[Rfam]
A member of the RNA family "TPP riboswitch aptamer (THI element)" from Thermoanaerobacterium sp. RBIITD, 99 nucleotides long. About the family: Vitamin B(1) in its active form thiamin pyrophosphate (TPP) is an essential coenzyme that is synthesised by coupling of pyrimidine and thiazole moieties in bacteria. Rfam links the family to the GO term thiamine pyrophosphate binding.
RNA sequence: UAUGUCCGCUGGGGGAGCUUUAAGCUGAGAUGGCAAAUGCCGAACCCCUCGAACCUGAUUAGGCUAAUACCUACGAAGGGAAUGCGGUUAUGAACCGCA
Numbered sequence: 001u002a003u004g005u006c007c008g009c010u011g012g013g014g015g016a017g018c019u020u021u022a023a024g025c026u027g028a029g030a031u032g033g034c035a036a037a038u039g040c041c042g043a044a045c046c047c048c049u050c051g052a053a054c055c056u057g058a059u060u061a062g063g064c065u066a067a068u069a070c071c072u073a074c075g076a077a078g079g080g081a082a083u084g085c086g087g088u089u090a091u092g093a094a095c096c097g098c099a
Stems, first nucleotide, its partner, number of pairs: 006087004011048004017025003032041003054079003060073004